[Rfam]
RNA sequence: ACUAGGGGUGGUUGCGCAUCUCUGUGAUCCAAGUUUACGGGAAGUUAAUUGGGGUGUGACGGGGAUGAGGUAGGGUCUUGGGUGUGUCUGGAUUUAGAUUGGUGGUUGUCCCGUUGGAAUGAUGAGUUGGUAUGACUUUCUCGGCGUAAGCUAAGGGAGUCCUCCCAUUAAAGAGGUGGGGAGUGCGUGAGGCUGGCAACAGAGCAGCGAACACCAUCCGCUCUUUCAUGGUCAACGGGAUGGCAACUAUCAUUGGAAUCUAUACAUAUCCACCUGCUAGAGUUCCUGGCUAGCUCCUUUUUU
Numbered sequence: 001a002c003u004a005g006g007g008g009u010g011g012u013u014g015c016g017c018a019u020c021u022c023u024g025u026g027a028u029c030c031a032a033g034u035u036u037a038c039g040g041g042a043a044g045u046u047a048a049u050u051g052g053g054g055u056g057u058g059a060c061g062g063g064g065a066u067g068a069g070g071u072a073g074g075g076u077c078u079u080g081g082g083u084g085u086g087u088c089u090g091g092a093u094u095u096a097g098a099u100u101g102g103u104g105g106u107u108g109u110c111c112c113g114u115u116g117g118a119a120u121g122a123u124g125a126g127u128u129g130g131u132a133u134g135a136c137u138u139u140c141u142c143g144g145c146g147u148a149a150g151c152u153a154a155g156g157g158a159g160u161c162c163u164c165c166c167a168u169u170a171a172a173g174a175g176g177u178g179g180g181g182a183g184u185g186c187g188u189g190a191g192g193c194u195g196g197c198a199a200c201a202g203a204g205c206a207g208c209g210a211a212c213a214c215c216a217u218c219c220g221c222u223c224u225u226u227c228a229u230g231g232u233c234a235a236c237g238g239g240a241u242g243g244c245a246a247c248u249a250u251c252a253u254u255g256g257a258a259u260c261u262a263u264a265c266a267u268a269u270c271c272a273c274c275u276g277c278u279a280g281a282g283u284u285c286c287u288g289g290c291u292a293g294c295u296c297c298u299u300u301u302u303u
Base pairs, nucleotide, nucleotide: 001045002044003043004023005022006021007020008019009018010017028042029041030040047301048300051297052296053295054294055293060288061287062286063285064284065283066281069278070277071276072275073274074273079272080271081270082269083268084267085266086265087264089262090261091260093257094256095255096253102250103249104248105247106246107245108244109243110239111238113236114235115234116233117232119229120228121226122225124223125222126221127220128167129166130165132163134161135160136159137158138157139156140155141154143152144151145150168172175218176217177216178215179214184211186209187208188207193202194201195200
Dot-bracket structure: ((((((((((......)))))))....(((.........)))))).((..(((((....(((((((..((((((....(((((((((.(((.((((.....((((((((((.(((((.((((.(((((((.(.((((((((.(((....))).)))))))).).)))(...)..(((((....(.(((....(((....)))....))).)..))))).)))).)).))..))))).))...))))))))..).)))..))).)))))))))))))))..).))))))....)))))..))..
Background
Rfam assigns this 303-nucleotide RNA sequence from Dimargaris cristalligena to the family "Metazoan signal recognition particle RNA". On this family, see Rosenblad et al., RNA Biol 2009: "Kinship in the SRP RNA family". Rfam describes the family as follows. The signal recognition particle (SRP) is a universally conserved ribonucleoprotein. It is involved in the co-translational targeting of proteins to membranes. The eukaryotic SRP consists of a 300-nucleotide 7S RNA and six proteins: SRPs 72, 68, 54, 19, 14, and 9. Archaeal SRP consists of a 7S RNA and homologues of the eukaryotic SRP19 and SRP54 proteins. Eukaryotic and archaeal 7S RNAs have very similar secondary structures, as represented by this family. Eight helical elements fold into the Alu and S domains, separated by a long linker region. The Alu domain is thought to mediate the peptide chain elongation retardation function of the SRP. The universally conserved helix which interacts with the SRP54 M domain mediates signal sequence recognition. In eukaryotes and archaea, the SRP19-helix 6 complex is thought to be involved in SRP assembly and stabilises helix 8 for SRP54 binding. The Signal Recognition Particle Database (SRPDB) provides compilations of SRP components, with phylogenetic data and structural illustrations. Many sequences below the threshold for this family are clearly closely related, but are most likely to be SRP RNA derived pseudogenes. The human genome in particular is known to contain a large amount of SRP RNA related sequence, including Alu repeats. While the threshold of this family is set high so as to minimise the number of hits to such regions, it is likely that some remain.